[Rfam]
RNA: Plastid-psbN 5UTR RNA
Organism: Nyssa sinensis
RNA sequence: GGCAACACCCAUCAAAGGAGUCGUUUCCCAUCCAGAAGGUAGUUUACCAUAUUCCCUACUC
Numbered sequence: 001g002g003c004a005a006c007a008c009c010c011a012u013c014a015a016a017g018g019a020g021u022c023g024u025u026u027c028c029c030a031u032c033c034a035g036a037a038g039g040u041a042g043u044u045u046a047c048c049a050u051a052u053u054c055c056c057u058a059c060u061c
Base pairs, nucleotide, nucleotide: 017045018044019043021041024038025037026036027035